[Rfam]
RNA: mir-5912 microRNA precursor family
RNA sequence: ACAGGGAGGUAGGGUGGGGUCAGGUGUAUUCGGUUAUGUCCUCGGGUAGUCGGAUAUUCGAAUCCCUGCCCCCAGCCAAGCUAUUAC
Numbered sequence: 001a002c003a004g005g006g007a008g009g010u011a012g013g014g015u016g017g018g019g020u021c022a023g024g025u026g027u028a029u030u031c032g033g034u035u036a037u038g039u040c041c042u043c044g045g046g047u048a049g050u051c052g053g054a055u056a057u058u059c060g061a062a063u064c065c066c067u068g069c070c071c072c073c074a075g076c077c078a079a080g081c082u083a084u085u086a087c
Base pairs, nucleotide, nucleotide: 012077013076015074016073017072018071019070021068022067023066024065026064028063029062030061031060032059033058035056036055037054042053043052044051045050